The record is a 128-nucleotide sequence from Nyctereutes procyonoides, which matches "Small nucleolar RNA SNORA13" in Rfam. The match comes from Rfam's covariance-model search (95 bits). Pairs were carried over by alignment from the consensus structure, which was predicted with CMfinder. It is annotated as an H/ACA-box small nucleolar RNA. Its Rfam clan is "SNORA13 clan".
RNA sequence: GGCCUUUGUGUUGCCCGUUCACCUUCGGAAACUGGUGAACGCGGUGUCAGAAAAGGCGUAAAGCAAGCCCCUGGCGGCGCUUCCUGCCCGGACCGCGGGUCUGGGGCGCGCGCCGCCCGGUCACAGUU
Numbered sequence: 001g002g003c004c005u006u007u008g009u010g011u012u013g014c015c016c017g018u019u020c021a022c023c024u025u026c027g028g029a030a031a032c033u034g035g036u037g038a039a040c041g042c043g044g045u046g047u048c049a050g051a052a053a054a055g056g057c058g059u060a061a062a063g064c065a066a067g068c069c070c071c072u073g074g075c076g077g078c079g080c081u082u083c084c085u086g087c088c089c090g091g092a093c094c095g096c097g098g099g100u101c102u103g104g105g106g107c108g109c110g111c112g113c114c115g116c117c118c119g120g121u122c123a124c125a126g127u128u
Base pairs, nucleotide, nucleotide: 002057003056004055005054006053007052009049010048012046013045014044015043016041017040018039019038020037021036022035023034070120071119073117074116075115076114077113078112083110085108086107087106088104089103

NCBI's taxonomy places the organism under Eukaryota, Eutheria, Laurasiatheria, Carnivora, Nyctereutes.